[Rfam]
This 137-nucleotide RNA sequence from Jaculus jaculus belongs to the Rfam family "Small nucleolar RNA SNORA72". On this family, see Ganot et al., Genes Dev 1997: "The family of box ACA small nucleolar RNAs is defined by an evolutionarily conserved secondary structure and ubiquitous sequence elements essential for RNA accumulation". Rfam's curators write: U72 is a member of the H/ACA class of snoRNAs. The snoRNA gene is located in intron 4 of the ribosomal L30 protein gene in human, mouse and chicken. The family's RNA type in Rfam is H/ACA-box small nucleolar RNA.

RNA sequence: AUAUACAUUUUUCCCACUGUUCUGAUUUUGUAACAAUCCGGACAGGCUUAACUUUCACCAUAUUAAGAACAUGCAUGGUCCCUAGACCUAGGUCUUUUCUUUUCCUAAGUGUGGUUUUAUGAAUGCUGGUGAUAAGU
Numbered sequence: 001a002u003a004u005a006c007a008u009u010u011u012u013c014c015c016a017c018u019g020u021u022c023u024g025a026u027u028u029u030g031u032a033a034c035a036a037u038c039c040g041g042a043c044a045g046g047c048u049u050a051a052c053u054u055u056c057a058c059c060a061u062a063u064u065a066a067g068a069a070c071a072u073g074c075a076u077g078g079u080c081c082c083u084a085g086a087c088c089u090a091g092g093u094c095u096u097u098u099c100u101u102u103u104c105c106u107a108a109g110u111g112u113g114g115u116u117u118u119a120u121g122a123a124u125g126c127u128g129g130u131g132a133u134a135a136g137u
Base pairs, nucleotide, nucleotide: 004057017045018044019043020042021041022040024038025037026036027035068130070128071127073126074125082114083113084112086110087109089107090106091105